The record is a 71-nucleotide RNA sequence from Lederbergia lenta, which matches "Bacillaceae-1 RNA" in Rfam. It is annotated as a small RNA. Lineage of the source: Bacteria > Bacilli > Caryophanales > Bacillaceae > Lederbergia.
[Rfam]
RNA sequence: AAUUAAGCUCACUCGACUAAAACGCCGCGUCCUGUGGCAACGUCGACGCACCCACACCCACAUCCUGUGGG
Numbered sequence: 001a002a003u004u005a006a007g008c009u010c011a012c013u014c015g016a017c018u019a020a021a022a023c024g025c026c027g028c029g030u031c032c033u034g035u036g037g038c039a040a041c042g043u044c045g046a047c048g049c050a051c052c053c054a055c056a057c058c059c060a061c062a063u064c065c066u067g068u069g070g071g
Stems, first nucleotide, its partner, number of pairs: 013046005024038005057071005